Nucleotides: 083
Base pairs, nucleotide, nucleotide: 001083002082003081004080005079006078007077
Number, partner (000 for none) and nucleotide at each position: 001083u002082u003081u004080g005079g006078a007077u008000c009000g010000a011000u012000g013000a014000u015000g016000u017000u018000g019000c020000a021000u022000a023000u024000a025000u026000u027000a028000c029000u030000g031000c032000g033000u034000u035000a036000u037000c038000u039000u040000u041000c042000u043000g044000a045000a046000a047000a048000u049000c050000c051000u052000u053000u054000g055000a056000g057000g058000a059000a060000g061000c062000u063000u064000u065000a066000a067000u068000u069000a070000c071000u072000c073000u074000g075000a076000g077007a078006u079005c080004c081003a082002a083001a